RNA sequence: UAUUAUGAUAGAGGUGCAGGUUUCAAGAGUACCCUUUUGUAAGGCAGGGCAGCCGCAGAGGGGAAAGGGGAAACUGCCGAAGUGGAAAAAUCUGCCCGAGAUUUUUCUGCUGGGACAUGAUAUAAGAUGUCAUGUACUGUCACGAUAAGUGGAGCGCUAUCAUCAUU
Numbered sequence: 001u002a003u004u005a006u007g008a009u010a011g012a013g014g015u016g017c018a019g020g021u022u023u024c025a026a027g028a029g030u031a032c033c034c035u036u037u038u039g040u041a042a043g044g045c046a047g048g049g050c051a052g053c054c055g056c057a058g059a060g061g062g063g064a065a066a067g068g069g070g071a072a073a074c075u076g077c078c079g080a081a082g083u084g085g086a087a088a089a090a091u092c093u094g095c096c097c098g099a100g101a102u103u104u105u106u107c108u109g110c111u112g113g114g115a116c117a118u119g120a121u122a123u124a125a126g127a128u129g130u131c132a133u134g135u136a137c138u139g140u141c142a143c144g145a146u147a148a149g150u151g152g153a154g155c156g157c158u159a160u161c162a163u164c165a166u167u
Base pairs, nucleotide, nucleotide: 006162007161008160009159010158011157016077017076018075019074021072022071023070024069032062033061034060035059036058037057081111082110083109084108085107086106087105088104089103090102091101092100112138113137115135116134117133118132119131120130121129122128140152141151142150143149
RNA: Lysine riboswitch aptamer